The family of this 222-nucleotide RNA sequence from Lachnospiraceae bacterium KM106-2 is "T-box leader". Uncharged tRNA acts as the effector for transcription antitermination of genes in the T-box leader family. The base pairs follow the family's consensus structure, which is taken from published work.
RNA sequence: AUAAAAGCUGUGAUUAGAAGAGUAGCUUAUGAAUAUGAGCCAGAGAAAGAGUGUCAUCGGGUGGAAGCAUUCUUAGAUUUGAAGUAAGUGAAGUGCAUCUAUGAGCUGAAUCAGUGAAUAUUGAAGUAGCUGGUUUCGACUAACGAGCGUUAAUCGUUUUGAGAUGAUACAAAUUAAAUUUUGUGUAAAUUAGAGUGGAACCGCGAAUAGAUCGCCUCUAUG
Numbered sequence: 001a002u003a004a005a006a007g008c009u010g011u012g013a014u015u016a017g018a019a020g021a022g023u024a025g026c027u028u029a030u031g032a033a034u035a036u037g038a039g040c041c042a043g044a045g046a047a048a049g050a051g052u053g054u055c056a057u058c059g060g061g062u063g064g065a066a067g068c069a070u071u072c073u074u075a076g077a078u079u080u081g082a083a084g085u086a087a088g089u090g091a092a093g094u095g096c097a098u099c100u101a102u103g104a105g106c107u108g109a110a111u112c113a114g115u116g117a118a119u120a121u122u123g124a125a126g127u128a129g130c131u132g133g134u135u136u137c138g139a140c141u142a143a144c145g146a147g148c149g150u151u152a153a154u155c156g157u158u159u160u161g162a163g164a165u166g167a168u169a170c171a172a173a174u175u176a177a178a179u180u181u182u183g184u185g186u187a188a189a190u191u192a193g194a195g196u197g198g199a200a201c202c203g204c205g206a207a208u209a210g211a212u213c214g215c216c217u218c219u220a221u222g
Stems, first nucleotide, its partner, number of pairs: 007106002015101004025089006038078001040076001049072006109135007137149002167186007192219004203215004
Overview:
The source organism's lineage runs through Bacteria, Bacillati, Bacillota, Lachnospirales and Lachnospiraceae. The family's RNA type in Rfam is cis-regulatory leader.